[Rfam]
Rfam assigns this 66-nucleotide RNA from Pyrobaculum arsenaticum to the family "Pyrobaculum sRNA 207". About the family: Non canonical pseudouridylation guide sRNA features. Predicted to target 23S U2597 in Pyrobaculum. The pairing is the family consensus, mapped onto this sequence. By type it is an H/ACA-box small nucleolar RNA. Rfam links the family to the GO term RNA processing. The literature on the family includes a 2012 paper in RNA by Bernick et al., "Discovery of Pyrobaculum small RNA families with atypical pseudouridine guide RNA features".
RNA sequence: GGGUGGGGGGCUCAGAGCGGCCCAGAGGGCCCCGGUGAGAGGGCCCCCUGCCGCGGGGUUCACACA
Numbered sequence: 001g002g003g004u005g006g007g008g009g010g011c012u013c014a015g016a017g018c019g020g021c022c023c024a025g026a027g028g029g030c031c032c033c034g035g036u037g038a039g040a041g042g043g044c045c046c047c048c049u050g051c052c053g054c055g056g057g058g059u060u061c062a063c064a065c066a
Stems, first nucleotide, its partner, number of pairs: 005049009019031005